Shown here is a 108-nucleotide sequence from Rhododendron williamsianum, a member of the family "Small nucleolar RNA snoR100".
RNA sequence: UACGUACAGAAGCAUGGUAAUGUGCACAGAAAUUGAUUUGGGUCUCUAGGCCUGCCCUCUUUGAUGCCUUUCGACUUUGAUUUGGGGGCACGGUUCUAUAGCAAAACG
Dot-bracket structure: ...........((((......))))..............(.(((.....(.(.(.(................).)...).).....))).).................
Numbered sequence: 001u002a003c004g005u006a007c008a009g010a011a012g013c014a015u016g017g018u019a020a021u022g023u024g025c026a027c028a029g030a031a032a033u034u035g036a037u038u039u040g041g042g043u044c045u046c047u048a049g050g051c052c053u054g055c056c057c058u059c060u061u062u063g064a065u066g067c068c069u070u071u072c073g074a075c076u077u078u079g080a081u082u083u084g085g086g087g088g089c090a091c092g093g094u095u096c097u098a099u100a101g102c103a104a105a106a107c108g
Stems, first nucleotide, its partner, number of pairs: 012025004040091001042089003050081001052079001054075001056073001

Taxonomically the source falls in Rhododendron (Eukaryota, Spermatophyta, asterids, Rhodoreae). The literature on the family includes a 2002 paper in Curr Biol by Marker et al., "Experimental RNomics: identification of 140 candidates for small non-messenger RNAs in the plant Arabidopsis thaliana".